[Rfam]
Nucleotides: 147
Base pairs, nucleotide, nucleotide: 001145002144003143004142005141006140007139008138009137010136011135012134013133014132015131016130017129018128019127020126021125022124023123027119028118029117032114033113034112035111036110037109038108039107040106041105042104043103044102046100048098049097050096051095052094055091056090057089058088070087071086072085073084074083
Number, partner (000 for none) and nucleotide at each position: 001145u002144c003143g004142u005141u006140a007139a008138g009137u010136g011135a012134u013133g014132a015131u016130g017129u018128g019127a020126u021125g022124g023123a024000c025000a026000a027119a028118g029117u030000a031000c032114c033113a034112u035111g036110u037109c038108a039107u040106c041105a042104c043103g044102c045000a046100u047000u048098g049097u050096c051095a052094c053000a054000a055091g056090c057089a058088u059000c060000u061000u062000a063000u064000u065000g066000c067000c068000a069000u070087g071086u072085c073084a074083u075000c076000a077000c078000c079000u080000u081000c082000a083074a084073u085072g086071g087070c088058g089057u090056g091055u092000c093000a094052g095051u096050g097049a098048u099000u100046g101000g102044g103043u104042g105041u106040g107039a108038u109037g110036a111035c112034a113033u114032g115000a116000c117029a118028c119027u120000c121000c122000a123023u124022c125021u126020g127019u128018c129017a130016c131015a132014u133013c134012a135011u136010c137009a138008c139007u140006u141005a142004a143003c144002g145001a146000a147000a